This 454-nucleotide RNA from Aliterella atlantica belongs to the Rfam family "Bacterial RNase P class A".

RNA sequence: AGAGUAGGCGCAGGUGGUUGCAGAUUAGGCAAGGCAGCUAAUUUGAGGAAAGUCCGGGCUUCCGAAAGACCAAACUUGCUGGGUAACGCCCAGUGCGAGCGAUCGUGAGGAUAGUGCCACAGAAAGAUACCGCCUUUACAGCGAUCGGUGAAACAGUAACCAGUUACCAGUUUUUGGUCACUGGUCACUGGUUACUGGUCACUGUAUAAAGGUAAGGGUGCAAAGGUGCGGUAAGAGCGCACCAGCAGCGCCGAGAGACGCUGGCUCGGUAAACCCCGGUUGGAAGCAAGGUCAAAGGAACUAUGGUUGGUCUUUUACCCGUUCCACUGCCCUUAAACCGCUUGAGGUGUUUGGUAACAAACAUCCCAGAUAGAUAACCGCCCUGAUGAAAAAAGACGUAGCAGUGCUACGUCUCUACGUUAGAACAGAACCCGGCUUAUGUCCGACUCUUUUC
Numbered sequence: 001a002g003a004g005u006a007g008g009c010g011c012a013g014g015u016g017g018u019u020g021c022a023g024a025u026u027a028g029g030c031a032a033g034g035c036a037g038c039u040a041a042u043u044u045g046a047g048g049a050a051a052g053u054c055c056g057g058g059c060u061u062c063c064g065a066a067a068g069a070c071c072a073a074a075c076u077u078g079c080u081g082g083g084u085a086a087c088g089c090c091c092a093g094u095g096c097g098a099g100c101g102a103u104c105g106u107g108a109g110g111a112u113a114g115u116g117c118c119a120c121a122g123a124a125a126g127a128u129a130c131c132g133c134c135u136u137u138a139c140a141g142c143g144a145u146c147g148g149u150g151a152a153a154c155a156g157u158a159a160c161c162a163g164u165u166a167c168c169a170g171u172u173u174u175u176g177g178u179c180a181c182u183g184g185u186c187a188c189u190g191g192u193u194a195c196u197g198g199u200c201a202c203u204g205u206a207u208a209a210a211g212g213u214a215a216g217g218g219u220g221c222a223a224a225g226g227u228g229c230g231g232u233a234a235g236a237g238c239g240c241a242c243c244a245g246c247a248g249c250g251c252c253g254a255g256a257g258a259c260g261c262u263g264g265c266u267c268g269g270u271a272a273a274c275c276c277c278g279g280u281u282g283g284a285a286g287c288a289a290g291g292u293c294a295a296a297g298g299a300a301c302u303a304u305g306g307u308u309g310g311u312c313u314u315u316u317a318c319c320c321g322u323u324c325c326a327c328u329g330c331c332c333u334u335a336a337a338c339c340g341c342u343u344g345a346g347g348u349g350u351u352u353g354g355u356a357a358c359a360a361a362c363a364u365c366c367c368a369g370a371u372a373g374a375u376a377a378c379c380g381c382c383c384u385g386a387u388g389a390a391a392a393a394a395g396a397c398g399u400a401g402c403a404g405u406g407c408u409a410c411g412u413c414u415c416u417a418c419g420u421u422a423g424a425a426c427a428g429a430a431c432c433c434g435g436c437u438u439a440u441g442u443c444c445g446a447c448u449c450u451u452u453u454c
Stems, first nucleotide, its partner, number of pairs: 001450005007444002010442003013382007021045008050438003054435005059286004068318001073281003077278002079093005094108001095106004109276002114274002116270003130217002132213007140205001225243006245265001246263005252257001290339003301329001304326002309324002312321001346365008
Lineage of the source: Bacteria > Bacillati > Cyanophyceae > Aliterella > Aliterella atlantica.